[Rfam]
RNA sequence: AAGCGGCCGCGCCGAUGGAUGUGCGACGGAGUCCUGGCCGGCCGUUCCUUUUCACCAACGCAAACCAAUCGACGUCCAUCGCACCGCUGGCCUGGCCGUGGAAACGGCGGCCCGCGGCCCUACCGUGGGAGAGAACGCUGAGCGUGACAAC
Numbered sequence: 001a002a003g004c005g006g007c008c009g010c011g012c013c014g015a016u017g018g019a020u021g022u023g024c025g026a027c028g029g030a031g032u033c034c035u036g037g038c039c040g041g042c043c044g045u046u047c048c049u050u051u052u053c054a055c056c057a058a059c060g061c062a063a064a065c066c067a068a069u070c071g072a073c074g075u076c077c078a079u080c081g082c083a084c085c086g087c088u089g090g091c092c093u094g095g096c097c098g099u100g101g102a103a104a105c106g107g108c109g110g111c112c113c114g115c116g117g118c119c120c121u122a123c124c125g126u127g128g129g130a131g132a133g134a135a136c137g138c139u140g141a142g143c144g145u146g147a148c149a150a151c
Base pairs, nucleotide, nucleotide: 002046003045004044005043006042007041008040009039011038012037013036084117085116086115087114089112090111091110092109
This 151-nucleotide RNA sequence from Corynebacterium otitidis belongs to the Rfam family "atpB RNA". The family's RNA type in Rfam is cis-regulatory element.